A member of the RNA family "LOOT RNA", 123 nucleotides long. The sequence is in the family's curated seed alignment.
[Rfam]
RNA sequence: CGCCUAAACUCACCGUUUUUCUUAGUGAGCAUGGUGCAAAAGCCAACCAAGGUACUGAGCUCGUCGUCAGAGCACCUUGGUUGGUCAUAUCUCGAAAGGGGUAUGGGUAGCCGAAAGGCUAUC
Dot-bracket structure: ((((....(((((.(.......).)))))...))))......(((((((((((.....((((.......))))))))))))))).((((((((....))))))))((((((......))))))